Rfam assigns this 85-nucleotide RNA sequence from Variibacter gotjawalensis to the family "Bradyrhizobiaceae sRNA BjrC68". NCBI's taxonomy places the organism under Bacteria, Pseudomonadota, Hyphomicrobiales, Nitrobacteraceae, Variibacter. The family's RNA type in Rfam is small RNA. A search with the family's covariance model found it, with a score of 57 bits.

[Rfam]
RNA sequence: ACGAGACAACGGUUUCGGCGAAUACCCGGCACCGCCGCAGCCGUUCGGGAGGCCUUGAGGGUGACCUCAGGGCCUCUCUCUUUUU
Numbered sequence: 001a002c003g004a005g006a007c008a009a010c011g012g013u014u015u016c017g018g019c020g021a022a023u024a025c026c027c028g029g030c031a032c033c034g035c036c037g038c039a040g041c042c043g044u045u046c047g048g049g050a051g052g053c054c055u056u057g058a059g060g061g062u063g064a065c066c067u068c069a070g071g072g073c074c075u076c077u078c079u080c081u082u083u084u085u
Stems, first nucleotide, its partner, number of pairs: 010043005016037003049076008059066002